This 87-nucleotide RNA from Pseudoponticoccus marisrubri belongs to the Rfam family "Glycine riboswitch aptamer". The base pairs follow the family's consensus structure.
RNA sequence: GCGGGCAAGACGGGAGAACCGGCCACGGCCGGUGCCGAAGGCGCAACCGCCCCGGAAACGCUCAGGCCCCUGGACCGUCCUGCAGGG
Dot-bracket structure: .....((.(((((.....((((......)))).(((((..(((...((.....))...))))).))).......))))).)).....
The source organism's lineage runs through Bacteria, Pseudomonadati, Pseudomonadota, Alphaproteobacteria and Pseudoponticoccus.
A search with the family's covariance model found it, with a score of 52 bits.
Its family is annotated with glycine biosynthetic process in the Gene Ontology.